[Rfam]
RNA: mir-135 microRNA precursor family
Organism: Clarias magur
RNA sequence: UCACUCCUGUGCUUUAUGGCUUUCUAUUCCUAUGUGAUUCUUUUAAUAAUGUCAUGUAGGGUUCAAAGCCAUUAGAUACAGAGUGG
Numbered sequence: 001u002c003a004c005u006c007c008u009g010u011g012c013u014u015u016a017u018g019g020c021u022u023u024c025u026a027u028u029c030c031u032a033u034g035u036g037a038u039u040c041u042u043u044u045a046a047u048a049a050u051g052u053c054a055u056g057u058a059g060g061g062u063u064c065a066a067a068g069c070c071a072u073u074a075g076a077u078a079c080a081g082a083g084u085g086g
Stems, first nucleotide, its partner, number of pairs: 002085005008080004013075002016072008026063001028061010